[Rfam]
RNA sequence: CCGUAGUUUAGAGGUAAGACAUAUAUUCCUCCCUGAAUAUUUUUCCCCUCUCUCUAAACUGCAAUGUUGUGUUUGCAUAUUGGCUCGACUGUUAGAGCCCGAUCAUUGAUAUCAACUUAUUGAUACCAAUGCUCAAUAUUUCCUGUGUUUUUGACCUAUGGUUAAAAAAGAUUAGUUAGCACCGUUUAAUACGGUGCUUUUUUUU
Numbered sequence: 001c002c003g004u005a006g007u008u009u010a011g012a013g014g015u016a017a018g019a020c021a022u023a024u025a026u027u028c029c030u031c032c033c034u035g036a037a038u039a040u041u042u043u044u045c046c047c048c049u050c051u052c053u054c055u056a057a058a059c060u061g062c063a064a065u066g067u068u069g070u071g072u073u074u075g076c077a078u079a080u081u082g083g084c085u086c087g088a089c090u091g092u093u094a095g096a097g098c099c100c101g102a103u104c105a106u107u108g109a110u111a112u113c114a115a116c117u118u119a120u121u122g123a124u125a126c127c128a129a130u131g132c133u134c135a136a137u138a139u140u141u142c143c144u145g146u147g148u149u150u151u152u153g154a155c156c157u158a159u160g161g162u163u164a165a166a167a168a169a170g171a172u173u174a175g176u177u178a179g180c181a182c183c184g185u186u187u188a189a190u191a192c193g194g195u196g197c198u199u200u201u202u203u204u205u
Base pairs, nucleotide, nucleotide: 005053006052010049011048018045019044021042023040024039025038026037027036028035080102081101082100083098084097085096086095104131105130106129107128108127150175151174178198179197180196181195182194183193184192185191
Notes
This 205-nucleotide sequence from Aliivibrio fischeri belongs to the Rfam family "GcvB RNA". For this family Rfam cites "The gcvB gene encodes a small untranslated RNA involved in expression of the dipeptide and oligopeptide transport systems in Escherichia coli" (Urbanowski et al., Mol Microbiol, 2000). Rfam classes the family as a non-coding RNA gene. Rfam's curators write: The gcvB gene encodes a small untranslated RNA involved in expression of the dipeptide and oligopeptide transport systems in Escherichia coli. Included several unknown homologues in alignment (Bateman A pers obs). It base-pairs with SorC. This interaction triggers the degradation of GcvB by RNase E, alleviating the GcvB-mediated mRNA repression of other amino acid-related transport and metabolic genes.